[Rfam]
RNA: Plastid-psbM 3UTR RNA
RNA sequence: AUAGUAAUAGUAUGGUCGAACGAUUCAUUUUUGAAUCGUUCGACCAUACUAUCCAUUUUUAUUAUUGUAAUAUAGAAAGAUACAAAC
Numbered sequence: 001a002u003a004g005u006a007a008u009a010g011u012a013u014g015g016u017c018g019a020a021c022g023a024u025u026c027a028u029u030u031u032u033g034a035a036u037c038g039u040u041c042g043a044c045c046a047u048a049c050u051a052u053c054c055a056u057u058u059u060u061a062u063u064a065u066u067g068u069a070a071u072a073u074a075g076a077a078a079g080a081u082a083c084a085a086a087c
Stems, first nucleotide, its partner, number of pairs: 007052021